[Rfam]
Shown here is an 83-nucleotide RNA from Phrynocephalus forsythii, a member of the family "mir-130 microRNA precursor family".
It scores 43 bits against the family's covariance model.
A reference for the family is Lagos-Quintana et al. (2002), "Identification of tissue-specific microRNAs from mouse", Curr Biol.
RNA sequence: CAUUGGCUGAAGCCCUUUUAAUCUGGCCCAGUUGGUAGCUCCUGGUACCGACUGGGCCAGGUUUAAAGGGCUGCAGCCAUUUA
Numbered sequence: 001c002a003u004u005g006g007c008u009g010a011a012g013c014c015c016u017u018u019u020a021a022u023c024u025g026g027c028c029c030a031g032u033u034g035g036u037a038g039c040u041c042c043u044g045g046u047a048c049c050g051a052c053u054g055g056g057c058c059a060g061g062u063u064u065a066a067a068g069g070g071c072u073g074c075a076g077c078c079a080u081u082u083a
Stems, first nucleotide, its partner, number of pairs: 002082001005078005012071007022061009